[Rfam]
RNA sequence: AAUAAAAAAGCCCUGCAGUAAAACUGCAGGGUCCUUCUAUUUCCUUUAUACAAAGGCAGAAGGAAAAGGGAGAGGAGAAACCGGAGGAAGAACUUAUGGGGAAACGUAAGUCUUCUCCGCGG
Numbered sequence: 001a002a003u004a005a006a007a008a009a010g011c012c013c014u015g016c017a018g019u020a021a022a023a024c025u026g027c028a029g030g031g032u033c034c035u036u037c038u039a040u041u042u043c044c045u046u047u048a049u050a051c052a053a054a055g056g057c058a059g060a061a062g063g064a065a066a067a068g069g070g071a072g073a074g075g076a077g078a079a080a081c082c083g084g085a086g087g088a089a090g091a092a093c094u095u096a097u098g099g100g101g102a103a104a105c106g107u108a109a110g111u112c113u114u115c116u117c118c119g120c121g122g
Stems, first nucleotide, its partner, number of pairs: 011031009032070005041058001043056004082119004087115004092111005